Background: The family of this 89-nucleotide RNA from Clostridium sp. AM58-1XD is "c-di-GMP-I riboswitch aptamer". The family is grouped with related families in Rfam's "c-di-GMP_I riboswitch clan". It scores 60 bits against the family's covariance model.
RNA sequence: GAAUAAAUUUGGCAAAUCUAUUAAAAGAUAGAGACGCAAAGCUACAGGGGCUUCUCCUCCAAAUGGAGGAAUGCCAGCCAGCCGCAUUU
Numbered sequence: 001g002a003a004u005a006a007a008u009u010u011g012g013c014a015a016a017u018c019u020a021u022u023a024a025a026a027g028a029u030a031g032a033g034a035c036g037c038a039a040a041g042c043u044a045c046a047g048g049g050g051c052u053u054c055u056c057c058u059c060c061a062a063a064u065g066g067a068g069g070a071a072u073g074c075c076a077g078c079c080a081g082c083c084g085c086a087u088u089u
Stems, first nucleotide, its partner, number of pairs: 012037002017032006041082003047079002049075003056069004